[Rfam]
Rfam assigns this 57-nucleotide RNA from Rhodamnia argentea to the family "Plastid-ndhJ 3UTR RNA". Rfam's curators write: Plastid ndhJ is a non-coding RNA (ncRNA) present in plastids.

RNA sequence: UUAUGAACUUUGUACUGUGCACAUAACUUACAUGCGCCAUACAAGAUCGUGUAGGAG
Numbered sequence: 001u002u003a004u005g006a007a008c009u010u011u012g013u014a015c016u017g018u019g020c021a022c023a024u025a026a027c028u029u030a031c032a033u034g035c036g037c038c039a040u041a042c043a044a045g046a047u048c049g050u051g052u053a054g055g056a057g
Base pairs, nucleotide, nucleotide: 019037020036022034023033024032